This 239-nucleotide sequence from aff. Roholtiella sp. LEGE 12411 belongs to the Rfam family "HNH endonuclease-associated RNA and ORF (HEARO) RNA".
[Rfam]
RNA sequence: GUCAGGAACUCAGGACUGAAGCCCUGAGCUUGUAAGAAAUUGCAAGCUAUUCUGACCAGCCUAAGUCUUAACUGACUACGUUAUUUGGGUCACGACACCGGCAAAUGCGACGCUAGUUUUCCGCUCUGUCGUUUGCAAUUAAACAGUUCUAAAGUCACUGGAACAGUGUUGCAAGCCUAACAAGCCCUAAUAACAUUGGUGUUCGCGCAGCGUCUCCCCUUGGGAGAAGCGAACAUUAC
Numbered sequence: 001g002u003c004a005g006g007a008a009c010u011c012a013g014g015a016c017u018g019a020a021g022c023c024c025u026g027a028g029c030u031u032g033u034a035a036g037a038a039a040u041u042g043c044a045a046g047c048u049a050u051u052c053u054g055a056c057c058a059g060c061c062u063a064a065g066u067c068u069u070a071a072c073u074g075a076c077u078a079c080g081u082u083a084u085u086u087g088g089g090u091c092a093c094g095a096c097a098c099c100g101g102c103a104a105a106u107g108c109g110a111c112g113c114u115a116g117u118u119u120u121c122c123g124c125u126c127u128g129u130c131g132u133u134u135g136c137a138a139u140u141a142a143a144c145a146g147u148u149c150u151a152a153a154g155u156c157a158c159u160g161g162a163a164c165a166g167u168g169u170u171g172c173a174a175g176c177c178u179a180a181c182a183a184g185c186c187c188u189a190a191u192a193a194c195a196u197u198g199g200u201g202u203u204c205g206c207g208c209a210g211c212g213u214c215u216c217c218c219c220u221u222g223g224g225a226g227a228a229g230c231g232a233a234c235a236u237u238a239c
Base pairs, nucleotide, nucleotide: 001056002055003054004053005052006051007050010028012025013024016021029046030045031044032043033042034041035040059200060199061198063196064077065076066075067074080194081193082192083191084190085189087187088186089185090184095129096128099123100122101121103119104118105117106116111231112230113229114228131176132175133174134173135172136171137170138169139168143167144166146164147163148162149161150160151159